[Rfam]
RNA sequence: UGCGACACCCAUCAAAGGGGUAGUUCCCCAUCCAGGAGCAACUUUCCUUUACUAAACC
Numbered sequence: 001u002g003c004g005a006c007a008c009c010c011a012u013c014a015a016a017g018g019g020g021u022a023g024u025u026c027c028c029c030a031u032c033c034a035g036g037a038g039c040a041a042c043u044u045u046c047c048u049u050u051a052c053u054a055a056a057c058c
Stems, first nucleotide, its partner, number of pairs: 017045005023039005

A member of the RNA family "Plastid-psbN 5UTR RNA" from Papaver somniferum, 58 nucleotides long. NCBI's taxonomy places the organism under Eukaryota, Streptophyta, Magnoliopsida, Papaveroideae, Papaver. Pairs were carried over by alignment from the consensus structure, which was predicted with LocARNA. Rfam classes the family as a cis-regulatory element.